The family of this 87-nucleotide RNA sequence from Digitaria exilis is "mir-395 microRNA precursor family". The family's consensus secondary structure was predicted with PFOLD. The match comes from Rfam's covariance-model search (68 bits). Lineage of the source: Eukaryota > Embryophyta > Tracheophyta > Liliopsida > Digitaria. About the family: mir-395 was identified in both Arabidopsis thaliana and Oryza sativa computationally and was later experimentally verified. mir-395 is thought to target mRNAs coding for ATP sulphurylases. The mature sequence is excised from the 3' arm of the hairpin. The family has 25 seed sequences and 2,798 matches in Rfam 15.1.
RNA sequence: GUGUUACUAGGAGUUCCCUAAAAGCACUUCACGAAGCCUUGUCUUGAGAGGCUCUUGUGAAGUGUUUGGGGGAACUCUCGGUGUCAC
Numbered sequence: 001g002u003g004u005u006a007c008u009a010g011g012a013g014u015u016c017c018c019u020a021a022a023a024g025c026a027c028u029u030c031a032c033g034a035a036g037c038c039u040u041g042u043c044u045u046g047a048g049a050g051g052c053u054c055u056u057g058u059g060a061a062g063u064g065u066u067u068g069g070g071g072g073a074a075c076u077c078u079c080g081g082u083g084u085c086a087c
Stems, first nucleotide, its partner, number of pairs: 005083004011077009022067013036053001
Dot-bracket structure: ....((((..(((((((((..(((((((((((((.(................).))))))))))))).)))))))))..))))....